A member of the RNA family "Lysine riboswitch aptamer" from Brevibacillus sp. SYP-B805, 183 nucleotides long. Riboswitches are metabolite binding domains within certain messenger RNAs that serve as precision sensors for their corresponding targets. Allosteric rearrangement of mRNA structure is mediated by ligand binding, and this results in modulation of gene expression. Pairs were carried over by alignment from the consensus structure, which is taken from published work.
RNA sequence: UCAAUAAAUAGAGGUGCGCGGCGGAUGAGUACUUUUUUCGCAACAAAGGGCGGGGACCCUGAAAAAAGGAAAGGCCAAUGCGCCGAAGUUCCGGUCGAUUCCCCGGGCGGCCGGCGCUGGGAUGUGCGUGAACAACGCCCGUCCUGUCAUGAAAGGGUACUUUCGUGGAGCGCUAUUUAUGAA
Numbered sequence: 001u002c003a004a005u006a007a008a009u010a011g012a013g014g015u016g017c018g019c020g021g022c023g024g025a026u027g028a029g030u031a032c033u034u035u036u037u038u039c040g041c042a043a044c045a046a047a048g049g050g051c052g053g054g055g056a057c058c059c060u061g062a063a064a065a066a067a068g069g070a071a072a073g074g075c076c077a078a079u080g081c082g083c084c085g086a087a088g089u090u091c092c093g094g095u096c097g098a099u100u101c102c103c104c105g106g107g108c109g110g111c112c113g114g115c116g117c118u119g120g121g122a123u124g125u126g127c128g129u130g131a132a133c134a135a136c137g138c139c140c141g142u143c144c145u146g147u148c149a150u151g152a153a154a155g156g157g158u159a160c161u162u163u164c165g166u167g168g169a170g171c172g173c174u175a176u177u178u179a180u181g182a183a
Base pairs, nucleotide, nucleotide: 006178007177008176009175010174011173016083017082018081019080020079023076024075032068033067034066035065036064037063038062039061087118088117089116091114092113093112094111095110096109097108119145120144121143122142123141124140126138127137128136129135147168148167149166150165151164152163153162